[Rfam]
Nucleotides: 081
Base pairs, nucleotide, nucleotide: 004078005077006076007075008074009073010072011071012070015068017066019064020063021062022061023060024059025058026057028054029053034052035051036050037049039048040047041046
Number, partner (000 for none) and nucleotide at each position: 001000u002000g003000c004078a005077c006076a007075u008074c009073g010072u011071a012070g013000u014000a015068a016000a017066a018000c019064g020063c021062u022061c023060a024059g025058a026057c027000c028054c029053c030000u031000g032000g033000g034052g035051u036050g037049g038000c039048u040047g041046c042000u043000u044000a045000u046041g047040u048039a049037c050036c051035a052034c053029g054028g055000a056000u057026g058025u059024u060023u061022g062021a063020g064019c065000a066017u067000g068015u069000g070012c071011u072010a073009u074008g075007g076006u077005g078004u079000c080000u081000a